About this RNA
Rfam assigns this 157-nucleotide RNA sequence from Vibrio nereis to the family "DABA-DC-AT RNA". Rfam classes the family as a cis-regulatory element.
RNA sequence: GCAAUCUCGGAGUUGAGUCUAAGCAGACAUUCUGGGGGAUACGCGAGGUGACUAUUCGGGCUGAGUAGGCAGCACGUAGGGUAGGUAUCGAUAAGGCCUUUUAUCGAUAGACGGGAUACUAUUGUCGCGUUGCGACAAGUGAAUGGGAAACCCAACA
Numbered sequence: 001g002c003a004a005u006c007u008c009g010g011a012g013u014u015g016a017g018u019c020u021a022a023g024c025a026g027a028c029a030u031u032c033u034g035g036g037g038g039a040u041a042c043g044c045g046a047g048g049u050g051a052c053u054a055u056u057c058g059g060g061c062u063g064a065g066u067a068g069g070c071a072g073c074a075c076g077u078a079g080g081g082u083a084g085g086u087a088u089c090g091a092u093a094a095g096g097c098c099u100u101u102u103a104u105c106g107a108u109a110g111a112c113g114g115g116a117u118a119c120u121a122u123u124g125u126c127g128c129g130u131u132g133c134g135a136c137a138a139g140u141g142a143a144u145g146g147g148a149a150a151c152c153c154a155a156c157a
Stems, first nucleotide, its partner, number of pairs: 006036008043077003047073001049071002052068003086109010123137006